Rfam assigns this 60-nucleotide RNA from Gemmobacter fulvus to the family "terC RNA".
[Rfam]
RNA sequence: CCCAGUGACCGGGCCCCUCUGGCGAGAGUUUACGGCGCUCUUGCGAUGUCGGCACUUCCC
Numbered sequence: 001c002c003c004a005g006u007g008a009c010c011g012g013g014c015c016c017c018u019c020u021g022g023c024g025a026g027a028g029u030u031u032a033c034g035g036c037g038c039u040c041u042u043g044c045g046a047u048g049u050c051g052g053c054a055c056u057u058c059c060c
Stems, first nucleotide, its partner, number of pairs: 006054002009052004022044008

Rfam 15.1 lists 1,112 matches to the family in 772 species.
NCBI's taxonomy places the organism under Bacteria, Pseudomonadati, Pseudomonadota, Rhodobacterales, Gemmobacter.